RNA sequence: CCACAAGGAGUGGAGCCUGCGGCUUAAUUUGACUCAACACGGGGCAACUUACCCGGUCCGGACAUCGUCAGGAUUGACAGACGCUCGUGCAGUUCUUUCUCGAUUCGAUGGGUGGUGGUGCAUGGCCGUUCGUGGCUGGUGAAGUGAAAAGUCUGGUUUAUUCCGCUAACGGGCGAGGCCUCGCCCUUAACUAGUCGGCUCGUGGUUCUCGAAUCUUAGUCUCCCCUCGGGGAGCAGGGAGAACAUCGGGCGAGUCGAAGCGGUCGUCGCUACUUCUUAGGGGGAUCCCGAGCAAGCUUAAGCUAGGUGAGAGAGAUCAAUAACAGGUCAGUGAUGCCCUUAGAUGUCCGGGGCCGCACGCGCGCUACACUGAAGACGAAAGCGCGAGUGCCUACGGUCUUGGUUUGGUCAGGCCGGGAACCCGCCCCGAGAGGGGAGGUUGGGGCCGUUCCUUCGGGGGCGGUCUCGCCUACAACGGGUUAACCGUGCCAAUCGUCUUCGUGCUGGGGAUCGGGGCUUGUAACUCAGCCCCGUGAACGAGGAAUUCCGAGUAGGCGUCCGUCAUCAGCUGGCGCCGAUUAAGUCCC
Numbered sequence: 001c002c003a004c005a006a007g008g009a010g011u012g013g014a015g016c017c018u019g020c021g022g023c024u025u026a027a028u029u030u031g032a033c034u035c036a037a038c039a040c041g042g043g044g045c046a047a048c049u050u051a052c053c054c055g056g057u058c059c060g061g062a063c064a065u066c067g068u069c070a071g072g073a074u075u076g077a078c079a080g081a082c083g084c085u086c087g088u089g090c091a092g093u094u095c096u097u098u099c100u101c102g103a104u105u106c107g108a109u110g111g112g113u114g115g116u117g118g119u120g121c122a123u124g125g126c127c128g129u130u131c132g133u134g135g136c137u138g139g140u141g142a143a144g145u146g147a148a149a150a151g152u153c154u155g156g157u158u159u160a161u162u163c164c165g166c167u168a169a170c171g172g173g174c175g176a177g178g179c180c181u182c183g184c185c186c187u188u189a190a191c192u193a194g195u196c197g198g199c200u201c202g203u204g205g206u207u208c209u210c211g212a213a214u215c216u217u218a219g220u221c222u223c224c225c226c227u228c229g230g231g232g233a234g235c236a237g238g239g240a241g242a243a244c245a246u247c248g249g250g251c252g253a254g255u256c257g258a259a260g261c262g263g264u265c266g267u268c269g270c271u272a273c274u275u276c277u278u279a280g281g282g283g284g285a286u287c288c289c290g291a292g293c294a295a296g297c298u299u300a301a302g303c304u305a306g307g308u309g310a311g312a313g314a315g316a317u318c319a320a321u322a323a324c325a326g327g328u329c330a331g332u333g334a335u336g337c338c339c340u341u342a343g344a345u346g347u348c349c350g351g352g353g354c355c356g357c358a359c360g361c362g363c364g365c366u367a368c369a370c371u372g373a374a375g376a377c378g379a380a381a382g383c384g385c386g387a388g389u390g391c392c393u394a395c396g397g398u399c400u401u402g403g404u405u406u407g408g409u410c411a412g413g414c415c416g417g418g419a420a421c422c423c424g425c426c427c428c429g430a431g432a433g434g435g436g437a438g439g440u441u442g443g444g445g446c447c448g449u450u451c452c453u454u455c456g457g458g459g460g461c462g463g464u465c466u467c468g469c470c471u472a473c474a475a476c477g478g479g480u481u482a483a484c485c486g487u488g489c490c491a492a493u494c495g496u497c498u499u500c501g502u503g504c505u506g507g508g509g510a511u512c513g514g515g516g517c518u519u520g521u522a523a524c525u526c527a528g529c530c531c532c533g534u535g536a537a538c539g540a541g542g543a544a545u546u547c548c549g550a551g552u553a554g555g556c557g558u559c560c561g562u563c564a565u566c567a568g569c570u571g572g573c574g575c576c577g578a579u580u581a582a583g584u585c586c587c
Base pairs, nucleotide, nucleotide: 003584004583007548008547009546010545011544012368014366015365016364018362019361020360021359022357023356028043029042030041031040052352053351054350055349056348058346063110064109065108066107067106076099077098079096080095081094114340115339117338118337119336120335123334124332125328126327127326128324129323130322135174136173137172139170140169154165155164156163180315181314182313184283185282186281187280188279189278190277193274194273195272286309288307289306291304292303293302372500373499374498375497376496377495378494384487385486386485455479459470460469461468462467507538512533513532514531515530516529517528518527554576555575556574557573558572559571561569
Dot-bracket structure: ..((..((((((.(((.((((((....((((........))))........(((((.(....(((((........((.(((............))).))......)))))...((.((((..((((((((....(((.((.............(((......)))...)).))).....(((.(((((((..(((............................................................................)))..)))))))..(.((.(((........))).)).)...)))......))).)))...).))))))).....).)))))...)).)))).))).)...(((((((.....(((....................................................................(...((((....))))........).....)))......)))))))......(....(((((((........)))))))....).....))))).....((((((.(.......).))))))......))...

Eukaryotic small subunit ribosomal RNA: a 587-nucleotide part of an RNA from Helcion dunkeri. The organism belongs to Helcion, within Eukaryota. Its Rfam clan is "SSU clan". Rfam 15.1 lists 75,755 matches to the family in 2,556 species. The sequence is in the family's curated seed alignment.